A member of the RNA family "mir-2 microRNA precursor family" from Owenia fusiformis, 66 nucleotides long. NCBI's taxonomy places the organism under Eukaryota, Opisthokonta, Bilateria, Oweniida, Owenia. The family has 56 seed sequences and 918 matches in Rfam 15.1. Its family is annotated with RISC complex and miRNA-mediated post-transcriptional gene silencing in the Gene Ontology. For this family Rfam cites "microRNAs: tiny regulators with great potential" (Ambros, Cell, 2001). The family's consensus secondary structure was predicted with PFOLD.
RNA sequence: UGUGGCAUCAAAGUGGUUGAGAUUAUGUAGUAAUGAUCAUAUCACAGCCAGCUUUGAUGAGCAUAU
Numbered sequence: 001u002g003u004g005g006c007a008u009c010a011a012a013g014u015g016g017u018u019g020a021g022a023u024u025a026u027g028u029a030g031u032a033a034u035g036a037u038c039a040u041a042u043c044a045c046a047g048c049c050a051g052c053u054u055u056g057a058u059g060a061g062c063a064u065a066u
Base pairs, nucleotide, nucleotide: 006059007058008057009056010055011054012053013052014050015049016048017047018046019045021043022042026041027040028039